[Rfam]
RNA sequence: GUUAACGUCUUACUUUGGCAGGAUUAGAGUGAUAAUUUAUAUGUCUAAUACUGUCAGGUAAUGAUGUCCUC
Numbered sequence: 001g002u003u004a005a006c007g008u009c010u011u012a013c014u015u016u017g018g019c020a021g022g023a024u025u026a027g028a029g030u031g032a033u034a035a036u037u038u039a040u041a042u043g044u045c046u047a048a049u050a051c052u053g054u055c056a057g058g059u060a061a062u063g064a065u066g067u068c069c070u071c
Stems, first nucleotide, its partner, number of pairs: 005067005010061005016056006023049006
RNA: mir-8/mir-141/mir-200 microRNA precursor family